[Rfam]
RNA sequence: UCGGCAGAUAGAGGAGCGAGCAUGAAGACGCUCGGGGGAGCCGGCAGGCGCAGAUCCCGGGCAGGGGCAAGGUUCGCCGAAUCUCUCUGUCGGGCGCGGCAGGGAGGUGGGCCCGCGGGAAAGACCCACGGGACUGUCUGCAGAUGCAGGUGCGCUAUCUUAGAG
Numbered sequence: 001u002c003g004g005c006a007g008a009u010a011g012a013g014g015a016g017c018g019a020g021c022a023u024g025a026a027g028a029c030g031c032u033c034g035g036g037g038g039a040g041c042c043g044g045c046a047g048g049c050g051c052a053g054a055u056c057c058c059g060g061g062c063a064g065g066g067g068c069a070a071g072g073u074u075c076g077c078c079g080a081a082u083c084u085c086u087c088u089g090u091c092g093g094g095c096g097c098g099g100c101a102g103g104g105a106g107g108u109g110g111g112c113c114c115g116c117g118g119g120a121a122a123g124a125c126c127c128a129c130g131g132g133a134c135u136g137u138c139u140g141c142a143g144a145u146g147c148a149g150g151u152g153c154g155c156u157a158u159c160u161u162a163g164a165g
Stems, first nucleotide, its partner, number of pairs: 006160006016077006023069002030062008081108012109135002112132004117127003137150005
Dot-bracket structure: .....((((((....((((((.((.....((((((((.................)))))))).....))..))))))...((((((((((((....))))))))))))((.((((.(((.....))).)))).)).(((((....)))))....)))))).....

Rfam assigns this 165-nucleotide RNA from Coriobacteriales bacterium OH1046 to the family "Lysine riboswitch aptamer". Lineage of the source: Bacteria > Bacillati > Actinomycetota > Coriobacteriia > Coriobacteriales. Riboswitches are metabolite binding domains within certain messenger RNAs that serve as precision sensors for their corresponding targets.